[Rfam]
RNA sequence: ACACAACAAACGCAAUUCAGGGACGAGGGCGGGGGACCCAAACAUCUCCUGGAGAUCACCGGGCUGCCGACGAUCGAAAGCGACACGCUUUCAUCCGACGGAGUCCUUGGGGUGUAGUUCCACUGGAACCGAGCAACCUCUCGCUCGAACCCGACAGCUGACUUCGUAGGCGCGUGGAGAGAGGAAGC
Numbered sequence: 001a002c003a004c005a006a007c008a009a010a011c012g013c014a015a016u017u018c019a020g021g022g023a024c025g026a027g028g029g030c031g032g033g034g035g036a037c038c039c040a041a042a043c044a045u046c047u048c049c050u051g052g053a054g055a056u057c058a059c060c061g062g063g064c065u066g067c068c069g070a071c072g073a074u075c076g077a078a079a080g081c082g083a084c085a086c087g088c089u090u091u092c093a094u095c096c097g098a099c100g101g102a103g104u105c106c107u108u109g110g111g112g113u114g115u116a117g118u119u120c121c122a123c124u125g126g127a128a129c130c131g132a133g134c135a136a137c138c139u140c141u142c143g144c145u146c147g148a149a150c151c152c153g154a155c156a157g158c159u160g161a162c163u164u165c166g167u168a169g170g171c172g173c174g175u176g177g178a179g180a181g182a183g184g185a186a187g188c
Stems, first nucleotide, its partner, number of pairs: 011172003017028002029167006039109002110152003118128004131146004